[Rfam]
RNA sequence: GGCGUAAAGGGUACGUAGGCGGAUAAGCAAGUUAGAAGUGAAAUCCUAUAGCUCAACUAUAGUAAGCUUUUAAAACUGCUCAUCUUGAGGUAUGGAAGGGAAAGUGGAAUUCCUAGUGUAGCGGUGAAAUGCGCAGAUAUUAGGAGGAAUACCAGUGGCGAAGGCGACUUUCUGGCCAUAAACUGACGCUGAGGUACGAAAGCGUGGGUAGCAAACAGGAUUAGAUACCCUGGUAGUCCACGCCGUAAACGAUGAGUGUUAGGUGUCUGGAAUAAUCUGGGUGCCGCAGCUAACGCAAUAAACACUCCGCCUGGGGAGUACGCACGCAAGUGUGAAACUCAAAGGAAU
Numbered sequence: 001g002g003c004g005u006a007a008a009g010g011g012u013a014c015g016u017a018g019g020c021g022g023a024u025a026a027g028c029a030a031g032u033u034a035g036a037a038g039u040g041a042a043a044u045c046c047u048a049u050a051g052c053u054c055a056a057c058u059a060u061a062g063u064a065a066g067c068u069u070u071u072a073a074a075a076c077u078g079c080u081c082a083u084c085u086u087g088a089g090g091u092a093u094g095g096a097a098g099g100g101a102a103a104g105u106g107g108a109a110u111u112c113c114u115a116g117u118g119u120a121g122c123g124g125u126g127a128a129a130u131g132c133g134c135a136g137a138u139a140u141u142a143g144g145a146g147g148a149a150u151a152c153c154a155g156u157g158g159c160g161a162a163g164g165c166g167a168c169u170u171u172c173u174g175g176c177c178a179u180a181a182a183c184u185g186a187c188g189c190u191g192a193g194g195u196a197c198g199a200a201a202g203c204g205u206g207g208g209u210a211g212c213a214a215a216c217a218g219g220a221u222u223a224g225a226u227a228c229c230c231u232g233g234u235a236g237u238c239c240a241c242g243c244c245g246u247a248a249a250c251g252a253u254g255a256g257u258g259u260u261a262g263g264u265g266u267c268u269g270g271a272a273u274a275a276u277c278u279g280g281g282u283g284c285c286g287c288a289g290c291u292a293a294c295g296c297a298a299u300a301a302a303c304a305c306u307c308c309g310c311c312u313g314g315g316g317a318g319u320a321c322g323c324a325c326g327c328a329a330g331u332g333u334g335a336a337a338c339u340c341a342a343a344g345g346a347a348u
Stems, first nucleotide, its partner, number of pairs: 001311003009308001011197004016191001018190003022084003026080003030077002032073008046062006088184002091180005099173007106150001110146008121132003158165002202243006211237002216232004254307006262285010289296002313340003322333004

Bacterial small subunit ribosomal RNA: a 348-nucleotide part of an RNA from Anaerococcus prevotii. On this family, see Yusupov et al., Science 2001: "Crystal structure of the ribosome at 5.5 A resolution".